Shown here is a 73-nucleotide RNA from a Thermoplasmatota archaeon, a member of the family "tRNA".
[Rfam]
RNA sequence: AGCCCCGUAGUGUAGUGGUCAAUCAUUCUGGCCUUUGGAGCCAGCAACAGAGGUUCGAAUCCUCUCGGGGCUA
Dot-bracket structure: (((((((..(((...........))).(((((.......)))))....(((((.......)))))))))))).
The base pairs follow the family's consensus structure, which is taken from published work. Transfer RNA (tRNA) molecules are approximately 80 nucleotides in length. Their secondary structure includes four short double-helical elements and three loops (D, anti-codon, and T loops). Further hydrogen bonds mediate the characteristic L-shaped molecular structure. tRNAs have two regions of fundamental functional importance: the anti-codon, which is responsible for specific mRNA codon recognition, and the 3' end, to which the tRNAs corresponding amino acid is attached (by aminoacyl-tRNA synthetases). tRNAs cope with the degeneracy of the genetic code in two manners: having more than one tRNA (with a specific anti-codon) for a particular amino acid; and 'wobble' base-pairing, i.e. permitting non-standard base-pairing at the 3rd anti-codon position. By type it is a transfer RNA.